[Rfam]
This 40-nucleotide RNA from Polerovirus UPOV belongs to the Rfam family "Putative RNA-dependent RNA polymerase ribosomal frameshift site". The organism belongs to Polerovirus UPOV, within Viruses. On this family, see Hauser et al., Arch Virol 2002: "Biological properties and molecular characterization of beet chlorosis virus (BChV)". The family's consensus secondary structure is taken from published work.

RNA sequence: GGGAAACGAAAAGGCGGCAGCGUCCGCUCAAACAACCGCA
Numbered sequence: 001g002g003g004a005a006a007c008g009a010a011a012a013g014g015c016g017g018c019a020g021c022g023u024c025c026g027c028u029c030a031a032a033c034a035a036c037c038g039c040a
Base pairs, nucleotide, nucleotide: 013028014027015026016025017024020039021038022037